[Rfam]
RNA sequence: GGACAUGAAGGCGAUCUGGCUGUGACGUCUGUCACCCCAUUGAUCGCCAGAGUUGAUCCGGCUGGUCUGGCUGGCUAGGCGGAUGUCGCCUCCUCCCUCACCACUCCAUGUGCAUCCCUCCCGAAGGUGCGCACUCGGUUGAAGAGGACGACCUUCCCCGAAUAGAGGAGGACUGGCCUUUGGUCAAUGGUAUACAAGCAGCUGUGCUUGCCUGCUAGAACCUCCAAACAAACUCUCAAGGUCUAUUUGUAGGAGAACAUAGGGUAGUCAAGCUUCCAAGACUCAGGACACAUCCAAAUGAGGCACUGCAUGUGGCAGGCUGCCUUUGUUU
Dot-bracket structure: (((..(((.((.((...((....((((((((((.(((((..(((((((...........))).)))))))..))...)))))))))).))))..)).)))....))).......((((((((((.(.......)))))(((....(((......))).)))...)))).)).............................(((...((..((((.......((((..(((((.............))))).))))....))))..))...)))......................(((.(((((.((((.....))))...)))))..)))
Numbered sequence: 001g002g003a004c005a006u007g008a009a010g011g012c013g014a015u016c017u018g019g020c021u022g023u024g025a026c027g028u029c030u031g032u033c034a035c036c037c038c039a040u041u042g043a044u045c046g047c048c049a050g051a052g053u054u055g056a057u058c059c060g061g062c063u064g065g066u067c068u069g070g071c072u073g074g075c076u077a078g079g080c081g082g083a084u085g086u087c088g089c090c091u092c093c094u095c096c097c098u099c100a101c102c103a104c105u106c107c108a109u110g111u112g113c114a115u116c117c118c119u120c121c122c123g124a125a126g127g128u129g130c131g132c133a134c135u136c137g138g139u140u141g142a143a144g145a146g147g148a149c150g151a152c153c154u155u156c157c158c159c160g161a162a163u164a165g166a167g168g169a170g171g172a173c174u175g176g177c178c179u180u181u182g183g184u185c186a187a188u189g190g191u192a193u194a195c196a197a198g199c200a201g202c203u204g205u206g207c208u209u210g211c212c213u214g215c216u217a218g219a220a221c222c223u224c225c226a227a228a229c230a231a232a233c234u235c236u237c238a239a240g241g242u243c244u245a246u247u248u249g250u251a252g253g254a255g256a257a258c259a260u261a262g263g264g265u266a267g268u269c270a271a272g273c274u275u276c277c278a279a280g281a282c283u284c285a286g287g288a289c290a291c292a293u294c295c296a297a298a299u300g301a302g303g304c305a306c307u308g309c310a311u312g313u314g315g316c317a318g319g320c321u322g323c324c325u326u327u328g329u330u331u
Stems, first nucleotide, its partner, number of pairs: 001107003006100003010096002013092002018090002024087010035074002037070003042067004046062003115171002117168004121138004126134001139161003146157003201273003207267002211263004222255004228250005296331003300326005306318004
This 331-nucleotide sequence from Jaculus jaculus belongs to the Rfam family "7SK RNA".
Rfam's curators write: 7SK was discovered as an abundant small nuclear RNA in the mid-70s but a possible function has only recently been suggested. Two independent studies have found that 7SK RNA binds the CDK9/cyclin T complex (known as elongation factor P-TEFb). P-TEFb activates transcription by phosphorylating the C-terminal domain of RNA polymerase II. This process is negatively regulated by the 7SK RNP. The secondary structure of 7SK RNA shown here was proposed by Wasserman and Steitz on the basis of chemical modification and enzymatic cleavage experiments. This family contains a number of annotated pseudogenes and 7SK derived repeats. The threshold is artificially high to minimise the pseudogene count.
Clan: 7SK clan.
Rfam classes the family as a non-coding RNA gene.
On this family, see Blencowe, Curr Biol 2002: "Transcription: surprising role for an elusive small nuclear RNA".